[Rfam]
RNA sequence: AUAAAAAAAACCCCGCAGACGAUCUGCGGGGUGCCUUUAGGAUUAGUAAACAAUCACUAUCGUUAAGGCGAUGGGAGAGGAGAAACCGGAGGAAGAACUUAUGGGGAAGUAAGUCUUCUCCGCGG
Numbered sequence: 001a002u003a004a005a006a007a008a009a010a011c012c013c014c015g016c017a018g019a020c021g022a023u024c025u026g027c028g029g030g031g032u033g034c035c036u037u038u039a040g041g042a043u044u045a046g047u048a049a050a051c052a053a054u055c056a057c058u059a060u061c062g063u064u065a066a067g068g069c070g071a072u073g074g075g076a077g078a079g080g081a082g083a084a085a086c087c088g089g090a091g092g093a094a095g096a097a098c099u100u101a102u103g104g105g106g107a108a109g110u111a112a113g114u115c116u117u118c119u120c121c122g123c124g125g
Stems, first nucleotide, its partner, number of pairs: 011031009032075001034073001036071001087122004092118004097114005
Dot-bracket structure: ..........(((((((((...)))))))))(.(.(..................................).).)...........((((.((((.(((((........)))))))))))))...
This 125-nucleotide RNA from Fictibacillus enclensis belongs to the Rfam family "ylbH leader". From the family's description: This family is a putative regulatory RNA structure that is found upstream of the ylbH gene in B. subtilis and related low GC Gram-positive bacteria. Pairs were carried over by alignment from the consensus structure. The source organism's lineage runs through Bacteria, Bacillati, Bacillota, Fictibacillaceae and Fictibacillus. For this family Rfam cites "New RNA motifs suggest an expanded scope for riboswitches in bacterial genetic control" (Barrick et al., Proc Natl Acad Sci U S A, 2004). It is annotated as a cis-regulatory leader.